[Rfam]
RNA sequence: AUUGUCAUGUAUUAUGUUUUGAUUGAAUGUCAAUUCCAUUAAAAAUAAAAUGUAUUGUUAUUUUCAUUAAUCAAUCAGAACAUGACACGUGACAGU
Numbered sequence: 001a002u003u004g005u006c007a008u009g010u011a012u013u014a015u016g017u018u019u020u021g022a023u024u025g026a027a028u029g030u031c032a033a034u035u036c037c038a039u040u041a042a043a044a045a046u047a048a049a050a051u052g053u054a055u056u057g058u059u060a061u062u063u064u065c066a067u068u069a070a071u072c073a074a075u076c077a078g079a080a081c082a083u084g085a086c087a088c089g090u091g092a093c094a095g096u
Stems, first nucleotide, its partner, number of pairs: 004093004009088002013084003017080004022075003
A member of the RNA family "MIR1520 microRNA precursor family" from Glycine max, 96 nucleotides long. The family's consensus secondary structure was predicted with RNAalifold. Rfam 15.1 lists 1,934 matches to the family in 15 species.